Notes:
Shown here is a 374-nucleotide sequence from Protaetiibacter larvae, a member of the family "Bacterial RNase P class A". Ribonuclease P (RNase P) is a ubiquitous endoribonuclease, found in archaea, bacteria and eukarya as well as chloroplasts and mitochondria. Rfam classes the family as a ribozyme. Its family is annotated with ribonuclease P activity, tRNA processing and dimeric ribonuclease P complex in the Gene Ontology. The match comes from Rfam's covariance-model search (279 bits).
RNA sequence: CGGGUCGGCCAGACGGUCGCGUCGCGCGCCGCGAGGCGCGUGCCGAGGAACGUCCGGGCUCCACAGAGCAGGGCGGUGGGUAACACCCACCCGGAGCAAUCCGCGAGAAAGUGCAACAGAGAGCAGACCGCCACGGCGCCUUCGGGCGCCGGGGUAAGGGUGAAACGGUGGUGUAAGAGACCACCAGGGGCCCGAGUGAUCGGGCUCGCUGGGUAAACCUCGCCCGGAGCAAGGUCAGACAGACACCGAUGAGGCUGCUCGCCGAGGUGUCGGGUAGACCGCUGGAGGGCUGCGGCAACGCAUCCCCGAGAGAGAUGGCCGUCCGGUCGACGCGAGUCGGCCGACAGAACCCGGCGUAUCGGCCGACCCGUUCA
Numbered sequence: 001c002g003g004g005u006c007g008g009c010c011a012g013a014c015g016g017u018c019g020c021g022u023c024g025c026g027c028g029c030c031g032c033g034a035g036g037c038g039c040g041u042g043c044c045g046a047g048g049a050a051c052g053u054c055c056g057g058g059c060u061c062c063a064c065a066g067a068g069c070a071g072g073g074c075g076g077u078g079g080g081u082a083a084c085a086c087c088c089a090c091c092c093g094g095a096g097c098a099a100u101c102c103g104c105g106a107g108a109a110a111g112u113g114c115a116a117c118a119g120a121g122a123g124c125a126g127a128c129c130g131c132c133a134c135g136g137c138g139c140c141u142u143c144g145g146g147c148g149c150c151g152g153g154g155u156a157a158g159g160g161u162g163a164a165a166c167g168g169u170g171g172u173g174u175a176a177g178a179g180a181c182c183a184c185c186a187g188g189g190g191c192c193c194g195a196g197u198g199a200u201c202g203g204g205c206u207c208g209c210u211g212g213g214u215a216a217a218c219c220u221c222g223c224c225c226g227g228a229g230c231a232a233g234g235u236c237a238g239a240c241a242g243a244c245a246c247c248g249a250u251g252a253g254g255c256u257g258c259u260c261g262c263c264g265a266g267g268u269g270u271c272g273g274g275u276a277g278a279c280c281g282c283u284g285g286a287g288g289g290c291u292g293c294g295g296c297a298a299c300g301c302a303u304c305c306c307c308g309a310g311a312g313a314g315a316u317g318g319c320c321g322u323c324c325g326g327u328c329g330a331c332g333c334g335a336g337u338c339g340g341c342c343g344a345c346a347g348a349a350c351c352c353g354g355c356g357u358a359u360c361g362g363c364c365g366a367c368c369c370g371u372u373c374a
Base pairs, nucleotide, nucleotide: 001370002369003368004367005366006365007364008363009362010361011359012323013322014321015320016319017318018317020045021044023042024041025040026039027038028037050357051356052355054354055353056352057351058350059229060228061227062226066260067259068258069257071225072224073223074222075221076090077089078088079087080086091105092103093102094101095100106220107219111218112217113214114213128159129158130155131154132153135150136149137148138147139146167185168184169183170182171181172180187209188207189206190205191204192203193202194201195200233280234279235278236277242271243270244269245268246267247266253263254262255261287306288305289304291302292301293300294299